[Rfam]
A member of the RNA family "Small nucleolar RNA SNORD73" from Callorhinus ursinus, 72 nucleotides long. The base pairs follow the family's consensus structure, which was predicted with PFOLD. Rfam links the family to the GO terms nucleolus and RNA processing. For this family Rfam cites "A novel snoRNA (U73) is encoded within the introns of the human and mouse ribosomal protein S3a genes" (Rebane et al., Gene, 1998). Rfam classes the family as a C/D-box small nucleolar RNA.
RNA sequence: AAUAGAUGACGACAAGAUGUUUUGGUCCCAGAUGAUGUCCACUGAUACAACACUUAACAUUUUUCUGAUGUU
Numbered sequence: 001a002a003u004a005g006a007u008g009a010c011g012a013c014a015a016g017a018u019g020u021u022u023u024g025g026u027c028c029c030a031g032a033u034g035a036u037g038u039c040c041a042c043u044g045a046u047a048c049a050a051c052a053c054u055u056a057a058c059a060u061u062u063u064u065c066u067g068a069u070g071u072u
Stems, first nucleotide, its partner, number of pairs: 001072004